[Rfam]
RNA sequence: UUGACUCGAUAAUGAGAAUUGUUAUUAUUAACUCAGCUGGUCGCGAGACUGGUCGGUAAGCUGAGAGACCCAACGCAGUCGGACCUUUCAGAUUAUCUCCUCAUCAGGCUAAUCACGGUUUCGACCCGGCUCUUGCCGGGUCUUUUUUUG
Numbered sequence: 001u002u003g004a005c006u007c008g009a010u011a012a013u014g015a016g017a018a019u020u021g022u023u024a025u026u027a028u029u030a031a032c033u034c035a036g037c038u039g040g041u042c043g044c045g046a047g048a049c050u051g052g053u054c055g056g057u058a059a060g061c062u063g064a065g066a067g068a069c070c071c072a073a074c075g076c077a078g079u080c081g082g083a084c085c086u087u088u089c090a091g092a093u094u095a096u097c098u099c100c101u102c103a104u105c106a107g108g109c110u111a112a113u114c115a116c117g118g119u120u121u122c123g124a125c126c127c128g129g130c131u132c133u134u135g136c137c138g139g140g141u142c143u144u145u146u147u148u149u150g
Stems, first nucleotide, its partner, number of pairs: 034055001036053007061091007069081001099108003123142008
RNA: PrrF RNA
Organism: Pseudomonas jinjuensis